Record summary: The record is an 87-nucleotide RNA sequence from Lipotes vexillifer, which matches "mir-412 microRNA precursor family" in Rfam. Gene Ontology terms of the family: miRNA-mediated post-transcriptional gene silencing and RISC complex. The match comes from Rfam's covariance-model search (97 bits).
RNA sequence: GGGUACAGGACGGGUGGUCGACCAGUUGGAAAGUAAUUGUUUCUAAUGUGCUUCACCUGGUCCACUAGCCGUCCACACCCACUGCGG
Numbered sequence: 001g002g003g004u005a006c007a008g009g010a011c012g013g014g015u016g017g018u019c020g021a022c023c024a025g026u027u028g029g030a031a032a033g034u035a036a037u038u039g040u041u042u043c044u045a046a047u048g049u050g051c052u053u054c055a056c057c058u059g060g061u062c063c064a065c066u067a068g069c070c071g072u073c074c075a076c077a078c079c080c081a082c083u084g085c086g087g
Stems, first nucleotide, its partner, number of pairs: 001080004009073005015067004020062006027055003032052004036047004